[Rfam]
RNA sequence: CUGUGUUGAGGUAGUAAGUUGUGUUGUUGUGGGGUUUGGGAUAUUUCAACCCCUUUUCUGGAGAUACAACUGUGCAACUUACUGCCUUCCACAA
Numbered sequence: 001c002u003g004u005g006u007u008g009a010g011g012u013a014g015u016a017a018g019u020u021g022u023g024u025u026g027u028u029g030u031g032g033g034g035u036u037u038g039g040g041a042u043a044u045u046u047c048a049a050c051c052c053c054u055u056u057u058c059u060g061g062a063g064a065u066a067c068a069a070c071u072g073u074g075c076a077a078c079u080u081a082c083u084g085c086c087u088u089c090c091a092c093a094a
Stems, first nucleotide, its partner, number of pairs: 002093004008088017026070002032052004057064001